[Rfam]
RNA sequence: UCUGACCCGUCGGCCCUGACUCCCAGCCGUCCACCCCUGGCGCACCUUCCCCGGUGCCAGGUGGGAUGGAUGGGGAUCAGGGCCAGCGGCUCCGGCCCC
Numbered sequence: 001u002c003u004g005a006c007c008c009g010u011c012g013g014c015c016c017u018g019a020c021u022c023c024c025a026g027c028c029g030u031c032c033a034c035c036c037c038u039g040g041c042g043c044a045c046c047u048u049c050c051c052c053g054g055u056g057c058c059a060g061g062u063g064g065g066a067u068g069g070a071u072g073g074g075g076a077u078c079a080g081g082g083c084c085a086g087c088g089g090c091u092c093c094g095g096c097c098c099c
Stems, first nucleotide, its partner, number of pairs: 010086001012084005018078002021075005027069006034063001036061008
A member of the RNA family "mraW RNA" from Frondihabitans sp. PAMC 28766, 99 nucleotides long. The source organism's lineage runs through Bacteria, Bacillati, Actinomycetota, Micrococcales and Frondihabitans. The base pairs follow the family's consensus structure, which is taken from published work. It is annotated as a cis-regulatory element. It scores 56 bits against the family's covariance model.